[Rfam]
The family of this 194-nucleotide sequence from Streptomyces diacarni is "Actinobacteria sRNA Ms_IGR-5".
Pairs were carried over by alignment from the consensus structure.
It is annotated as a small RNA.
A search with the family's covariance model found it, with a score of 82 bits.
RNA sequence: ACACAGGAAAGGAGGUGAUCCGGCUGAUGAUCAAUCACCGGACGUGUGAGGUGGCUGCGGCCUAAGGCCGACGCCACUGCGUGACGCCGGCUCGCCGGCCAAUCCACAGCAGUCACCCGGCCCGUGGGCUCGUCGGACUCGUCCGACCGACGCCGUUCGCUUCGGCGAAGGGAGUCGCCCACGGGCCGUUCUGC
Dot-bracket structure: ..............(((.(..................................).))).(.((...((((.((...........)).)))).....)).).................((((((((((((..(((((..........))))).........................))))))))))))......